[Rfam]
RNA sequence: GUUCCCUGUGAUGUAAAAAUGACCAUGCUAAUUCUGAAUAUUUUUUCUGAAGAAAAGCUUUAAGUUAUUUAUCUGAGGGAGCA
Numbered sequence: 001g002u003u004c005c006c007u008g009u010g011a012u013g014u015a016a017a018a019a020u021g022a023c024c025a026u027g028c029u030a031a032u033u034c035u036g037a038a039u040a041u042u043u044u045u046u047c048u049g050a051a052g053a054a055a056a057g058c059u060u061u062a063a064g065u066u067a068u069u070u071a072u073c074u075g076a077g078g079g080a081g082c083a
Base pairs, nucleotide, nucleotide: 001082002081003080004079005078006077007076
The record is an 83-nucleotide RNA from Solanum lycopersicum, which matches "Small nucleolar RNA snoR53Y" in Rfam.
The family is grouped with related families in Rfam's "snoR53 clan".
NCBI's taxonomy places the organism under Eukaryota, Streptophyta, lamiids, Solanales, Solanum subgen. Lycopersicon.
It scores 55 bits against the family's covariance model.
A reference for the family is Brown et al. (2001), "Multiple snoRNA gene clusters from Arabidopsis", RNA.
Its family is annotated with RNA processing and nucleolus in the Gene Ontology.